The family of this 82-nucleotide sequence from Phascolarctos cinereus is "mir-194 microRNA precursor family". The family's consensus secondary structure was predicted with RNAalifold. Rfam links the family to the GO terms RISC complex and miRNA-mediated post-transcriptional gene silencing. The match comes from Rfam's covariance-model search (67 bits). Taxonomically the source falls in Phascolarctos (Eukaryota, Opisthokonta, Gnathostomata, Theria). For this family Rfam cites "Reduced accumulation of specific microRNAs in colorectal neoplasia" (Michael et al., Mol Cancer Res, 2003).
RNA sequence: UGGCGCUCACUCCCUGUAACAGCAACUCCAUGUGGGACGACUUCCUGCUUCCACUGGGGAUGCUGUUACCUUGGGUGGGCAG
Numbered sequence: 001u002g003g004c005g006c007u008c009a010c011u012c013c014c015u016g017u018a019a020c021a022g023c024a025a026c027u028c029c030a031u032g033u034g035g036g037a038c039g040a041c042u043u044c045c046u047g048c049u050u051c052c053a054c055u056g057g058g059g060a061u062g063c064u065g066u067u068a069c070c071u072u073g074g075g076u077g078g079g080c081a082g
Base pairs, nucleotide, nucleotide: 010075011074012073016069017068018067019066020065021064022063023062026059027058028057029056030055033053034052035051